[Rfam]
RNA: c-di-GMP-I riboswitch aptamer
Organism: Acetivibrio thermocellus
RNA sequence: UUUUGAAAAGGGCAAAUCUAUCGAAAGAUAGAGACGCAAAGCCAACGAGUCUAAGGUGGAAACACUAUGACGGUCGGGUUGCCAAA
Numbered sequence: 001u002u003u004u005g006a007a008a009a010g011g012g013c014a015a016a017u018c019u020a021u022c023g024a025a026a027g028a029u030a031g032a033g034a035c036g037c038a039a040a041g042c043c044a045a046c047g048a049g050u051c052u053a054a055g056g057u058g059g060a061a062a063c064a065c066u067a068u069g070a071c072g073g074u075c076g077g078g079u080u081g082c083c084a085a086a
Stems, first nucleotide, its partner, number of pairs: 012037002017032006040080004046076003049071003056065003